[Rfam]
RNA sequence: GGAUAUCACUGUUUUUCUAUCCUCAACCAAUAACACAAUGACACGUGGAAAACUGAUCUCACAUGUCAUUGUGUUAUUGGAUGGGGAUAGCAAAAAGUGAUAUCC
Numbered sequence: 001g002g003a004u005a006u007c008a009c010u011g012u013u014u015u016u017c018u019a020u021c022c023u024c025a026a027c028c029a030a031u032a033a034c035a036c037a038a039u040g041a042c043a044c045g046u047g048g049a050a051a052a053c054u055g056a057u058c059u060c061a062c063a064u065g066u067c068a069u070u071g072u073g074u075u076a077u078u079g080g081a082u083g084g085g086g087a088u089a090g091c092a093a094a095a096a097g098u099g100a101u102a103u104c105c
Stems, first nucleotide, its partner, number of pairs: 002104004012095004017090004022085004027080017045062004050057001